[Rfam]
RNA sequence: CCCUUAUCCAGAGCGGCGGAGGGACUGGCCCGAUGAAGCCCGGCAACCGGCACGUCCGUGCCAAGGUGCCAAUUCCAGCGGUAAGGCCUGAGCGGUGACUUACCGGCAGAUAAGGG
Numbered sequence: 001c002c003c004u005u006a007u008c009c010a011g012a013g014c015g016g017c018g019g020a021g022g023g024a025c026u027g028g029c030c031c032g033a034u035g036a037a038g039c040c041c042g043g044c045a046a047c048c049g050g051c052a053c054g055u056c057c058g059u060g061c062c063a064a065g066g067u068g069c070c071a072a073u074u075c076c077a078g079c080g081g082u083a084a085g086g087c088c089u090g091a092g093c094g095g096u097g098a099c100u101u102a103c104c105g106g107c108a109g110a111u112a113a114g115g116g
Base pairs, nucleotide, nucleotide: 001116002115003114004113005112006111007110008109013041015040016039017038021031022030023029025078026077027076028075042070043069044068045067047066048065049062050061051060052059074108079105080104081103082102083101084100
RNA: SAM riboswitch aptamer (S box leader)